This 76-nucleotide RNA from Chrysochloris asiatica belongs to the Rfam family "mir-202 microRNA precursor family". The literature on the family includes a 2005 paper in Nat Genet by Bentwich et al., "Identification of hundreds of conserved and nonconserved human microRNAs". Rfam links the family to the GO terms miRNA-mediated post-transcriptional gene silencing and RISC complex. The family has 23 seed sequences and 673 matches in Rfam 15.1.
[Rfam]
Nucleotides: 076
Stems, first nucleotide, its partner, number of pairs: 010067010021055003025051008
Number, partner (000 for none) and nucleotide at each position: 001000u002000c003000g004000u005000a006000c007000c008000u009000u010067u011066u012065u013064c014063c015062u016061a017060u018059g019058c020000a021055u022054a023053u024000a025051c026050u027049u028048c029047u030046u031045u032044g033000a034000g035000g036000a037000u038000g039000u040000g041000g042000c043000c044032u045031a046030a047029a048028g049027a050026g051025g052000u053023a054022u055021a056000g057000a058019g059018c060017a061016u062015g063014g064013g065012a066011a067010a068000a069000u070000g071000g072000g073000g074000c075000g076000a